[Rfam]
RNA: Streptomyces sRNA 4677
Organism: Streptomyces qinzhouensis
RNA sequence: GGCCUCGGUGCGGCGCGUCGCCCUUCAAAGGAACGGGAGAGAACCCACCCAACCAAACCCGCUGGUCCAACUCCCGUCGCCACCCGAUCGGGUGAAGGGCGCGACGCCGACCCGGACCAGUGGGAUACCGUCGGCCGCAACAACCUCAUACACGCAGACGGCCCCCGACAGGAUUGCAGUCCUGGCGAGGGCCUGACCGAUCCGGAAGAGAAGAGCUUCCCG
Numbered sequence: 001g002g003c004c005u006c007g008g009u010g011c012g013g014c015g016c017g018u019c020g021c022c023c024u025u026c027a028a029a030g031g032a033a034c035g036g037g038a039g040a041g042a043a044c045c046c047a048c049c050c051a052a053c054c055a056a057a058c059c060c061g062c063u064g065g066u067c068c069a070a071c072u073c074c075c076g077u078c079g080c081c082a083c084c085c086g087a088u089c090g091g092g093u094g095a096a097g098g099g100c101g102c103g104a105c106g107c108c109g110a111c112c113c114g115g116a117c118c119a120g121u122g123g124g125a126u127a128c129c130g131u132c133g134g135c136c137g138c139a140a141c142a143a144c145c146u147c148a149u150a151c152a153c154g155c156a157g158a159c160g161g162c163c164c165c166c167g168a169c170a171g172g173a174u175u176g177c178a179g180u181c182c183u184g185g186c187g188a189g190g191g192c193c194u195g196a197c198c199g200a201u202c203c204g205g206a207a208g209a210g211a212a213g214a215g216c217u218u219c220c221c222g
Stems, first nucleotide, its partner, number of pairs: 007201001009199002017066003081094005160193005166187002170183004204220005